[Rfam]
RNA sequence: GUUUAACGCGAGCCGAAACAACCAAUCGUGCGGGGGAGAUUUAUGGUAAAACGCAGCAUGACGCUGCGUUGUUCCUCGGGGUGAAUCGCAUUAAGCAAGCAAUAGCUGCAGACGCGUAGGGUGACUCCUUCAUCCGAAUCCGACAACUAACCUCGUAGGCCAAACACAAGGAGGAA
Numbered sequence: 001g002u003u004u005a006a007c008g009c010g011a012g013c014c015g016a017a018a019c020a021a022c023c024a025a026u027c028g029u030g031c032g033g034g035g036g037a038g039a040u041u042u043a044u045g046g047u048a049a050a051a052c053g054c055a056g057c058a059u060g061a062c063g064c065u066g067c068g069u070u071g072u073u074c075c076u077c078g079g080g081g082u083g084a085a086u087c088g089c090a091u092u093a094a095g096c097a098a099g100c101a102a103u104a105g106c107u108g109c110a111g112a113c114g115c116g117u118a119g120g121g122u123g124a125c126u127c128c129u130u131c132a133u134c135c136g137a138a139u140c141c142g143a144c145a146a147c148u149a150a151c152c153u154c155g156u157a158g159g160c161c162a163a164a165c166a167c168a169a170g171g172a173g174g175a176a
Stems, first nucleotide, its partner, number of pairs: 012160003018029002030156006040078001079141003087116003119135004
RNA: c-di-AMP riboswitch aptamer (ydaO/yuaA leader)
Organism: Paenibacillus curdlanolyticus